Shown here is a 261-nucleotide RNA sequence from Pullulanibacillus pueri, a member of the family "BsrG". The family's consensus secondary structure was predicted with WAR. bsrE, bsrG and bsrH pair through intermolecular interactions with antisense sRNAs. They form type I toxin/antitoxin system that includes an mRNA encoding for a short, toxic peptide (bsrE, bsrG and bsrH) and an antitoxin that is comprised of an antisense RNA. bsrG encodes a 39-amino-acid toxin, and the 180 nucleotide antisense sRNA called SR4 acts as the antitoxin (they overlap by 123 nucleotides). It is annotated as a small RNA. On this family, see Saito et al., Gene 2008: "Novel small RNA-encoding genes in the intergenic regions of Bacillus subtilis". Rfam 15.1 lists 614 matches to the family in 343 species.
[Rfam]
RNA sequence: GUGACUAGAAGGUUUUCCAAGGGUGGUCGGCGCGCCUCUGAGAGGGGGUGAUGCCUCUAUGUCUGUAUAUCAAGCGUUGAUGAUCAUGCUCACAUUUGGGCUUGUGAUCAUUGCUUUGUUACAAGGCAAAGAAAAAUAGACCGCCCUUGGCAUAAGCGCGCGGUCUAUUCCUGACACUUGUUGUGUCUGCGAAUGACAUGCGUCCGACCCCCUUAAAGGGGAAUCGACUGUCACUGGUCGUAGGUGUUCAUAGUACCUGCG
Number, nucleotide and partner (000 for none) at each position: 001g234002u233003g232004a231005c230006u000007a229008g228009a000010a000011g225012g000013u000014u207015u206016u000017c150018c149019a148020a147021g146022g145023g144024u000025g141026g000027u139028c000029g000030g000031c000032g000033c050034g049035c048036c047037u046038c045039u044040g000041a000042g000043a000044g039045g038046g037047g036048g035049u034050g033051a000052u000053g000054c000055c000056u000057c000058u000059a000060u000061g122062u121063c000064u000065g119066u118067a117068u000069a000070u000071c000072a000073a000074g089075c088076g087077u000078u000079g000080a000081u000082g000083a000084u000085c000086a000087u076088g075089c074090u000091c000092a000093c000094a000095u000096u000097u000098g115099g114100g000101c000102u000103u000104g000105u000106g000107a000108u000109c000110a000111u000112u000113g000114c099115u098116u000117u067118g066119u065120u000121a062122c061123a000124a000125g000126g000127c000128a000129a000130a000131g000132a000133a000134a000135a000136a000137u000138a000139g027140a000141c025142c000143g000144c023145c022146c021147u020148u019149g018150g017151c000152a000153u000154a000155a000156g000157c000158g000159c000160g000161c000162g000163g000164u000165c000166u000167a000168u000169u000170c000171c000172u000173g000174a000175c000176a000177c000178u000179u000180g000181u000182u000183g000184u000185g000186u000187c000188u000189g000190c000191g000192a000193a000194u000195g000196a000197c000198a000199u000200g000201c000202g000203u000204c000205c000206g015207a014208c221209c220210c219211c218212c000213u000214u000215a000216a000217a000218g211219g210220g209221g208222a000223a000224u000225c011226g000227a000228c008229u007230g005231u004232c003233a002234c001235u000236g000237g000238u000239c261240g260241u259242a258243g257244g256245u255246g254247u253248u252249c000250a000251u000252a248253g247254u246255a245256c244257c243258u242259g241260c240261g239